[Rfam]
RNA sequence: UCCCCGCGUUGUAUGGCUUUUUAUUCCUACGUGAUCGUAACGCACGCUGAGCCUCAUGUAGGGAGGAAAGCCAUGCAACGACGGGUG
Number, nucleotide and partner (000 for none) at each position: 001u000002c085003c084004c083005c000006g000007c080008g079009u078010u077011g076012u075013a074014u073015g072016g071017c070018u069019u068020u067021u000022u000023a000024u064025u063026c062027c061028u060029a059030c058031g057032u056033g055034a054035u000036c000037g000038u000039a000040a000041c000042g000043c000044a000045c000046g000047c000048u000049g000050a000051g000052c000053c000054u034055c033056a032057u031058g030059u029060a028061g027062g026063g025064a024065g000066g000067a020068a019069a018070g017071c016072c015073a014074u013075g012076c011077a010078a009079c008080g007081a000082c000083g004084g003085g002086u000087g000
RNA: mir-135 microRNA precursor family